[Rfam]
RNA sequence: UGCCGGCCGGCGCUCUUUUCACAUUGUGCUACUGUCUGCACUCGUCACAAGCAGUGCAAUGUUAAAAGGGCAUCGGCGGGCA
Number, nucleotide and partner (000 for none) at each position: 001u082002g081003c080004c000005g000006g077007c076008c075009g074010g073011c000012g071013c070014u069015c068016u067017u066018u065019u064020c000021a000022c061023a060024u059025u058026g057027u056028g055029c054030u053031a000032c000033u000034g000035u000036c000037u000038g000039c000040a000041c000042u000043c000044g000045u000046c000047a000048c000049a000050a000051g000052c000053a030054g029055u028056g027057c026058a025059a024060u023061g022062u000063u000064a019065a018066a017067a016068g015069g014070g013071c012072a000073u010074c009075g008076g007077c006078g000079g000080g003081c002082a001
The family of this 82-nucleotide sequence from Cavia porcellus is "mir-130 microRNA precursor family".
On this family, see Lagos-Quintana et al., Curr Biol 2002: "Identification of tissue-specific microRNAs from mouse".
The match comes from Rfam's covariance-model search (95 bits).
Its family is annotated with RISC complex and miRNA-mediated post-transcriptional gene silencing in the Gene Ontology.
Pairs were carried over by alignment from the consensus structure, which was predicted with PFOLD.
Rfam 15.1 lists 2,580 matches to the family in 658 species.